[Rfam]
This 95-nucleotide RNA sequence from Nicotiana sylvestris belongs to the Rfam family "MIR6152 microRNA precursor family".
The base pairs follow the family's consensus structure, which was predicted with RNAalifold.
NCBI's taxonomy places the organism under Eukaryota, Embryophyta, Tracheophyta, Gunneridae, Nicotiana.

RNA sequence: UAGACAUAUUACUGUAUUCGACUGUAUUCACGACGUGAAACAGGGAAUUACACUAUUUUUAAAUGGGAAGUGUAUCAAUUAAAUAAUAGACUACU
Numbered sequence: 001u002a003g004a005c006a007u008a009u010u011a012c013u014g015u016a017u018u019c020g021a022c023u024g025u026a027u028u029c030a031c032g033a034c035g036u037g038a039a040a041c042a043g044g045g046a047a048u049u050a051c052a053c054u055a056u057u058u059u060u061a062a063a064u065g066g067g068a069a070g071u072g073u074a075u076c077a078a079u080u081a082a083a084u085a086a087u088a089g090a091c092u093a094c095u
Stems, first nucleotide, its partner, number of pairs: 004092001009089003013085003017082002020080002023077002026075002029072003034065003037059004042054002